The family of this 55-nucleotide RNA from Streptomyces sp. TAA040 is "L17-Actino-Proteobacteria ribosomal protein leader". The family's RNA type in Rfam is cis-regulatory leader.
RNA sequence: CGUCCGGGCGUCCGCCCGGACGGCCUGACACCGGUACCUGAUACGGCCGGUGCAG
Numbered sequence: 001c002g003u004c005c006g007g008g009c010g011u012c013c014g015c016c017c018g019g020a021c022g023g024c025c026u027g028a029c030a031c032c033g034g035u036a037c038c039u040g041a042u043a044c045g046g047c048c049g050g051u052g053c054a055g
Stems, first nucleotide, its partner, number of pairs: 001022009025055003029052007